[Rfam]
RNA sequence: CCCAUGCCUGUAAACAUCCCCGACUGGAAGCUGUGCUGCACGUUAAAAGGGCUUUCAGUUGGAUGUUUACUGUCAUUGU
Numbered sequence: 001c002c003c004a005u006g007c008c009u010g011u012a013a014a015c016a017u018c019c020c021c022g023a024c025u026g027g028a029a030g031c032u033g034u035g036c037u038g039c040a041c042g043u044u045a046a047a048a049g050g051g052c053u054u055u056c057a058g059u060u061g062g063a064u065g066u067u068u069a070c071u072g073u074c075a076u077u078g079u
Base pairs, nucleotide, nucleotide: 002078004076005075006074008072010070011069012068013067014066015065016064017063018062019061023059024058025057026056027055028054029053030052031051032050
Shown here is a 79-nucleotide RNA sequence from Danionella cerebrum, a member of the family "mir-30 microRNA precursor family". For this family Rfam cites "Identification of novel genes coding for small expressed RNAs" (Lagos-Quintana et al., Science, 2001). NCBI's taxonomy places the organism under Eukaryota, Vertebrata, Osteoglossocephalai, Cyprinoidei, Danionella. Gene Ontology terms of the family: gene silencing by miRNA and RISC complex. This family consists of the mammalian microRNA (miRNA) precursor mir-30a. Animal miRNAs are transcribed as ~70nt precursors and subsequently processed by the Dicer enzyme to give a ~22nt product. The base pairs follow the family's consensus structure, which was predicted with PFOLD.